This 125-nucleotide sequence from Balneicella halophila belongs to the Rfam family "FMN riboswitch aptamer (RFN element)". The RFN element is a highly conserved domain that is found frequently in the 5'-untranslated regions of prokaryotic mRNAs that encode for flavin mononucleotide (FMN) biosynthesis and transport proteins. The source organism's lineage runs through Bacteria, Pseudomonadati, Bacteroidia, Balneicellaceae and Balneicella. The family's consensus secondary structure is taken from published work. Rfam links the family to the GO term FMN binding. The literature on the family includes a 2009 paper in Nature by Serganov et al., "Coenzyme recognition and gene regulation by a flavin mononucleotide riboswitch".
RNA sequence: AAAAUUCUUCAGGGCAGGGUGUAAUUCCCUACCGGUGGUAACAGUCCACGACUCUUGCAAAAAGCAAGACUGAUUAGGUGAAAAUCCUAUACCGACGGUCAUAGUCCGGAUGGAAGAAGAAUGAU
Numbered sequence: 001a002a003a004a005u006u007c008u009u010c011a012g013g014g015c016a017g018g019g020u021g022u023a024a025u026u027c028c029c030u031a032c033c034g035g036u037g038g039u040a041a042c043a044g045u046c047c048a049c050g051a052c053u054c055u056u057g058c059a060a061a062a063a064g065c066a067a068g069a070c071u072g073a074u075u076a077g078g079u080g081a082a083a084a085u086c087c088u089a090u091a092c093c094g095a096c097g098g099u100c101a102u103a104g105u106c107c108g109g110a111u112g113g114a115a116g117a118a119g120a121a122u123g124a125u
Stems, first nucleotide, its partner, number of pairs: 004122007017029003031105002033094002035049004044092002053069002075089004096108003